A member of the RNA family "MIR7486 microRNA precursor family" from Gossypium harknessii, 87 nucleotides long. Pairs were carried over by alignment from the consensus structure, which was predicted with RNAalifold. Lineage of the source: Eukaryota > Mesangiospermae > Pentapetalae > malvids > Gossypium.
[Rfam]
RNA sequence: CACGUUAGAGCGCUUUGCUAAUGUGGACACAAAUCGCGCUUACGUGGACGCAAUUUGAUGCCACGUCAGCAAAGCGCGCUGACGUGG
Numbered sequence: 001c002a003c004g005u006u007a008g009a010g011c012g013c014u015u016u017g018c019u020a021a022u023g024u025g026g027a028c029a030c031a032a033a034u035c036g037c038g039c040u041u042a043c044g045u046g047g048a049c050g051c052a053a054u055u056u057g058a059u060g061c062c063a064c065g066u067c068a069g070c071a072a073a074g075c076g077c078g079c080u081g082a083c084g085u086g087g
Stems, first nucleotide, its partner, number of pairs: 001086008010077010021066001023064004030057005036051003040047002